[Rfam]
RNA sequence: UUUUCCGAUAGAGGCGCGGCAGAGCAAGAGUAAGUAUGAAGAGUUGGCAACGAUGACCAUACUGAAAGGGACUGACCGCCGAAGUGAAGGUUUUUGCCAAGAAACUUUCUGCUGGUUUUGCAUUUAAUAAAUGUAAGACUGUCACCUGGGGUUAUGGUGGAGCGCUAUCCUUGCA
Numbered sequence: 001u002u003u004u005c006c007g008a009u010a011g012a013g014g015c016g017c018g019g020c021a022g023a024g025c026a027a028g029a030g031u032a033a034g035u036a037u038g039a040a041g042a043g044u045u046g047g048c049a050a051c052g053a054u055g056a057c058c059a060u061a062c063u064g065a066a067a068g069g070g071a072c073u074g075a076c077c078g079c080c081g082a083a084g085u086g087a088a089g090g091u092u093u094u095u096g097c098c099a100a101g102a103a104a105c106u107u108u109c110u111g112c113u114g115g116u117u118u119u120g121c122a123u124u125u126a127a128u129a130a131a132u133g134u135a136a137g138a139c140u141g142u143c144a145c146c147u148g149g150g151g152u153u154a155u156g157g158u159g160g161a162g163c164g165c166u167a168u169c170c171u172u173g174c175a
Stems, first nucleotide, its partner, number of pairs: 007169005016079004021073001025070001033063006083113003086109008114140011142160005
RNA: Lysine riboswitch aptamer